RNA: mir-460 microRNA precursor family
RNA sequence: UUUUCCGGUCUCCUCAUUGUGCAUGCUGUGUGUCUUCAGUGUAGUUCUCACAGCGCCUGCAAUGUGGAGGCCAGGAGA
Number, nucleotide and partner (000 for none) at each position: 001u000002u000003u000004u000005c000006c000007g000008g000009u000010c000011u000012c067013c066014u000015c064016a063017u062018u061019g060020u059021g058022c000023a000024u055025g000026c053027u052028g051029u050030g049031u000032g000033u000034c000035u000036u000037c000038a000039g000040u000041g000042u000043a000044g000045u000046u000047c000048u000049c030050a029051c028052a027053g026054c000055g024056c000057c000058u021059g020060c019061a018062a017063u016064g015065u000066g013067g012068a000069g000070g000071c000072c000073a000074g000075g000076a000077g000078a000